Source information
Shown here is a 126-nucleotide sequence from Duffyella gerundensis, a member of the family "Phenylalanine leader peptide". Pairs were carried over by alignment from the consensus structure, which was predicted with CMfinder. For this family Rfam cites "Two groups of phenylalanine biosynthetic operon leader peptides genes: a high level of apparently incidental frameshifting in decoding Escherichia coli pheL" (Gurvich et al., Nucleic Acids Res, 2010). Rfam classes the family as a cis-regulatory leader. Rfam links the family to the GO term cellular amino acid metabolic process.
RNA sequence: CAAGCAUGCAUGCUGCCGUUUUUCGUUUCUUUUUUUACUUUAGCACCUGAUUGUCGGGGGCUUCUGCGCAAAAGAGAAGAAACGAAAAAUCGCGCCGAAAGCCUCCCUAGUGGAGGCUUUUUUGUU
Numbered sequence: 001c002a003a004g005c006a007u008g009c010a011u012g013c014u015g016c017c018g019u020u021u022u023u024c025g026u027u028u029c030u031u032u033u034u035u036u037a038c039u040u041u042a043g044c045a046c047c048u049g050a051u052u053g054u055c056g057g058g059g060g061c062u063u064c065u066g067c068g069c070a071a072a073a074g075a076g077a078a079g080a081a082a083c084g085a086a087a088a089a090u091c092g093c094g095c096c097g098a099a100a101g102c103c104u105c106c107c108u109a110g111u112g113g114a115g116g117c118u119u120u121u122u123u124g125u126u
Stems, first nucleotide, its partner, number of pairs: 015093002018090001020088014035073002045054002057067001059065002098120009